Overview:
This 52-nucleotide RNA sequence from Moschus moschiferus belongs to the Rfam family "mir-1302 microRNA precursor family". Rfam 15.1 lists 16,160 matches to the family in 135 species. The base pairs follow the family's consensus structure, which was predicted with WAR. Gene Ontology terms of the family: RISC complex and miRNA-mediated post-transcriptional gene silencing.

[Rfam]
Nucleotides: 052
Stems, first nucleotide, its partner, number of pairs: 006048002010044003014040003018036004022031001
Number, partner (000 for none) and nucleotide at each position: 001000u002000u003000u004000u005000u006048a007047g008000a009000a010044u011043a012042a013000g014040c015039g016038u017000a018036u019035c020034c021033c022031a023000u024000g025000c026000a027000a028000u029000a030000u031022u032000u033021g034020g035019g036018a037000u038016a039015u040014g041000c042012u043011u044010a045000c046000a047007c048006u049000a050000a051000a052000a